HNH endonuclease-associated RNA and ORF (HEARO) RNA: a 220-nucleotide RNA from filamentous cyanobacterium Phorm 6.
Rfam classes the family as a non-coding RNA gene.
The base pairs follow the family's consensus structure, which is taken from published work.
A search with the family's covariance model found it, with a score of 164 bits.

[Rfam]
RNA sequence: GUCAGUAACCCAGCCCUAAAGGGACUGAGCUUGUAAGAGCAAUCGAAGCAAGCUGUACUGACCAGCCUCAGCCUUAACUGGCUACGUUAUUUGAGUCACGACACCGGAGAAUGCGACGCUAGUUUUCCGCUCUGUCAUUUGCAAUUAAACAGUCUUAAGGUCACUGAGACAGUGUUGCAAGUCUAACAAGCUCUCAUAACAUUGGCGAAGCGAACAUUAC
Dot-bracket structure: (((((((..(.((.((....))..))..)((((...............))))...)))))))..(((..((((......))))..(((((..((((....((..((((((((....[[[[.))))))))....)).(((((((((...((.((((((.......)))))).))))))))))).......))))..)))))...)))..]]]]........